[Rfam]
RNA sequence: UGAGUAUGAAAAGCAAUCGCCAGUAUGUGAAUAUUGGAGGAAAGUCCGAGCUCCAUAGGGCAGGAUGCCGGAUAACGUCCGGCGAAGGCAACUUUAGGGAUAGUGCCACAGAAAUGUGUACCGCCACGUAUGUGGUAAGGGUGGAACGGUGCGGUAAGAGCGUACCAGCGGUAAGGUAACUUGCCGGCUAGGCAAACCCCAUCUGGAGCAAGACCGAAUAGGGAAGGGAUGAAGCGGCCCGCUGAUCUUCCGGGUUGUGUCGCUUGAGCGUAACAGUAAUGUUACGCCUAGACAGAUGAUUGCUGCUGCGCAAGCAGAACAAAACUCGGCUUACUGAUUACUCAUCUG
Number, nucleotide and partner (000 for none) at each position: 001u344002g343003a342004g341005u340006a339007u000008g000009a000010a335011a000012a304013g303014c302015a301016a300017u299018c298019g000020c037021c036022a035023g034024u033025a032026u031027g000028u000029g000030a000031a026032u025033a024034u023035u022036g021037g020038a000039g000040g000041a000042a332043a331044g330045u000046c329047c328048g327049a326050g325051c208052u207053c206054c205055a000056u000057a000058g240059g239060g238061c237062a000063g204064g203065a202066u201067g200068c082069c081070g080071g079072a078073u000074a000075a000076c000077g000078u072079c071080c070081g069082g068083c097084g095085a094086a093087g092088g000089c000090a000091a000092c087093u086094u085095u084096a000097g083098g199099g198100a000101u000102a000103g197104u196105g193106c192107c191108a000109c000110a000111g000112a000113a000114a000115u000116g000117u000118g000119u000120a000121c140122c139123g136124c135125c134126a133127c132128g000129u000130a000131u000132g127133u126134g125135g124136u123137a000138a000139g122140g121141g000142u000143g000144g000145a000146a000147c000148g166149g165150u164151g163152c162153g161154g000155u000156a000157a000158g000159a000160g000161c153162g152163u151164a150165c149166c148167a000168g188169c186170g185171g184172u183173a182174a181175g180176g000177u000178a000179a000180c175181u174182u173183g172184c171185c170186g169187g000188c168189u000190a000191g107192g106193c105194a000195a000196a104197c103198c099199c098200c067201a066202u065203c064204u063205g054206g053207a052208g051209c000210a000211a000212g261213a260214c259215c257216g000217a000218a000219u000220a000221g000222g251223g250224a249225a248226g247227g246228g000229a000230u000231g000232a000233a243234g242235c241236g000237g061238c060239c059240c058241g235242c234243u233244g000245a000246u227247c226248u225249u224250c223251c222252g000253g000254g000255u000256u000257g215258u000259g214260u213261c212262g000263c000264u000265u000266g000267a000268g287269c286270g285271u284272a283273a282274c281275a280276g000277u000278a000279a000280u275281g274282u273283u272284a271285c270286g269287c268288c000289u000290a000291g000292a000293c000294a000295g000296a000297u000298g018299a017300u016301u015302g014303c013304u012305g000306c000307u000308g000309c000310g000311c000312a000313a000314g000315c000316a000317g000318a000319a000320c000321a000322a000323a000324a000325c050326u049327c048328g047329g046330c044331u043332u042333a000334c000335u010336g000337a000338u000339u006340a005341c004342u003343c002344a001345u000346c000347u000348g000
A member of the RNA family "Bacterial RNase P class A" from Megasphaera paucivorans, 348 nucleotides long. The base pairs follow the family's consensus structure, which is taken from published work. The organism belongs to Megasphaera, within Bacteria. Rfam describes the family as follows. Ribonuclease P (RNase P) is a ubiquitous endoribonuclease, found in archaea, bacteria and eukarya as well as chloroplasts and mitochondria. Its best characterised activity is the generation of mature 5'-ends of tRNAs by cleaving the 5'-leader elements of precursor-tRNAs. Cellular RNase Ps are ribonucleoproteins. RNA from bacterial RNase Ps retains its catalytic activity in the absence of the protein subunit, i.e. it is a ribozyme. Isolated eukaryotic and archaeal RNase P RNA has not been shown to retain its catalytic function, but is still essential for the catalytic activity of the holoenzyme. Although the archaeal and eukaryotic holoenzyme s have a much greater protein content than the bacterial ones, the RNA cores from all the three lineages are homologous -- helices corresponding to P1, P2, P3, P4, and P10/11 are common to all cellular RNase P RNAs. Yet, there is considerable sequence variation, particularly among the eukaryotic RNAs. Identified in Yersinia as Ysr151/RnpB. It scores 284 bits against the family's covariance model. Its family is annotated with ribonuclease P activity, dimeric ribonuclease P complex and tRNA processing in the Gene Ontology.